[Rfam]
RNA sequence: CAGUGAGGUAGAGGAGCGGUAUUUAACAGUCUUAAUCCGAGCAGAGGAGCUAUGAGGAUUAGGAGAAGGAAAUAUCGCCGAAGUGGUUAUGUAUCCUCAAUACAUACUGCUGGGUCUGUAGUUAACAGCUGCAGGACUGUCUUAUCAGACCACCCAGUCUGGUAAGUUGCGCUAUCUCAUUC
Numbered sequence: 001c002a003g004u005g006a007g008g009u010a011g012a013g014g015a016g017c018g019g020u021a022u023u024u025a026a027c028a029g030u031c032u033u034a035a036u037c038c039g040a041g042c043a044g045a046g047g048a049g050c051u052a053u054g055a056g057g058a059u060u061a062g063g064a065g066a067a068g069g070a071a072a073u074a075u076c077g078c079c080g081a082a083g084u085g086g087u088u089a090u091g092u093a094u095c096c097u098c099a100a101u102a103c104a105u106a107c108u109g110c111u112g113g114g115u116c117u118g119u120a121g122u123u124a125a126c127a128g129c130u131g132c133a134g135g136a137c138u139g140u141c142u143u144a145u146c147a148g149a150c151c152a153c154c155c156a157g158u159c160u161g162g163u164a165a166g167u168u169g170c171g172c173u174a175u176c177u178c179a180u181u182c
Base pairs, nucleotide, nucleotide: 006177007176008175009174010173011172016078017077018076019075020074021073022072023071024070031063032062033061034060035059036058037057038056082111083110084109085108086107088106089105090104091103092102093101112138113137115135116134117133118132119131120130121129122128141166142165143164144163145162146161147160148159149158

Overview:
Rfam assigns this 182-nucleotide RNA sequence from Anaerocolumna xylanovorans to the family "Lysine riboswitch aptamer". The family has 47 seed sequences and 3,224 matches in Rfam 15.1.